[Rfam]
RNA sequence: CCCUCCGAAGUUUCCCUCAGGAUAGCUGGCGCUUGAUUAAAUCAGUCUCAUCCGGUAAAGCGAAUGAUUAGAGGCCUUGGGGCCGAAACGACCUCAACCUAUUCUCAAACUUUAAAUGGGUGAGAAGUCAGGCUUGCUUAAUCGAAGCUCUGACAAUGGAUGGUGAGUGCCAAGUGGGCCACUCUUGGUAAGCAGGACUGGCGCUGUGGGAUGAACCAAACGUUGGGUUAAGGCGCCCGAAUCGACGCUCAUCAGAUCCCAUAAAAGGCGUUGGUUGCUUAAGACAGCAGGACGGUGGCCAUGGAAGUCGGAAUCCGCUAAGGAGUGUGUAACAACUCACCUGCCGAAGCAACUAGCCCUGAAAAUGGAUGGCGCUGAAGCGUCGUGCCCAUACCCAACCGUUGAGUCACAGAGGGGUAUUAAUAAUCCUCCGCGAGGACUCAACGAGUAGGAGGGUCGUGGUGGUGUGCGUAGAAGGGUCUGGGCGUAGGCCUACCUGGAGCCGCCAUCAGUGCAGAU
Numbered sequence: 001c002c003c004u005c006c007g008a009a010g011u012u013u014c015c016c017u018c019a020g021g022a023u024a025g026c027u028g029g030c031g032c033u034u035g036a037u038u039a040a041a042u043c044a045g046u047c048u049c050a051u052c053c054g055g056u057a058a059a060g061c062g063a064a065u066g067a068u069u070a071g072a073g074g075c076c077u078u079g080g081g082g083c084c085g086a087a088a089c090g091a092c093c094u095c096a097a098c099c100u101a102u103u104c105u106c107a108a109a110c111u112u113u114a115a116a117u118g119g120g121u122g123a124g125a126a127g128u129c130a131g132g133c134u135u136g137c138u139u140a141a142u143c144g145a146a147g148c149u150c151u152g153a154c155a156a157u158g159g160a161u162g163g164u165g166a167g168u169g170c171c172a173a174g175u176g177g178g179c180c181a182c183u184c185u186u187g188g189u190a191a192g193c194a195g196g197a198c199u200g201g202c203g204c205u206g207u208g209g210g211a212u213g214a215a216c217c218a219a220a221c222g223u224u225g226g227g228u229u230a231a232g233g234c235g236c237c238c239g240a241a242u243c244g245a246c247g248c249u250c251a252u253c254a255g256a257u258c259c260c261a262u263a264a265a266a267g268g269c270g271u272u273g274g275u276u277g278c279u280u281a282a283g284a285c286a287g288c289a290g291g292a293c294g295g296u297g298g299c300c301a302u303g304g305a306a307g308u309c310g311g312a313a314u315c316c317g318c319u320a321a322g323g324a325g326u327g328u329g330u331a332a333c334a335a336c337u338c339a340c341c342u343g344c345c346g347a348a349g350c351a352a353c354u355a356g357c358c359c360u361g362a363a364a365a366u367g368g369a370u371g372g373c374g375c376u377g378a379a380g381c382g383u384c385g386u387g388c389c390c391a392u393a394c395c396c397a398a399c400c401g402u403u404g405a406g407u408c409a410c411a412g413a414g415g416g417g418u419a420u421u422a423a424u425a426a427u428c429c430u431c432c433g434c435g436a437g438g439a440c441u442c443a444a445c446g447a448g449u450a451g452g453a454g455g456g457u458c459g460u461g462g463u464g465g466u467g468u469g470c471g472u473a474g475a476a477g478g479g480u481c482u483g484g485g486c487g488u489a490g491g492c493c494u495a496c497c498u499g500g501a502g503c504c505g506c507c508a509u510c511a512g513u514g515c516a517g518a519u
Stems, first nucleotide, its partner, number of pairs: 001456006011024001013022003027172007046125008058113001059111002065107003070102001072100003077097006084090001127154004131149005178202004183197005207218003222399005228393001232389003241386001243385001246382003266360003270357010287344005293317003299311002318322001323338001327336002400446009458514001460511008469503002477498002484493003
Rfam assigns this 519-nucleotide part of an RNA from Folsomia candida to the family "Eukaryotic large subunit ribosomal RNA". The family's consensus secondary structure is taken from published work. The family has 88 seed sequences and 107,465 matches in Rfam 15.1. The match comes from Rfam's covariance-model search (3097 bits).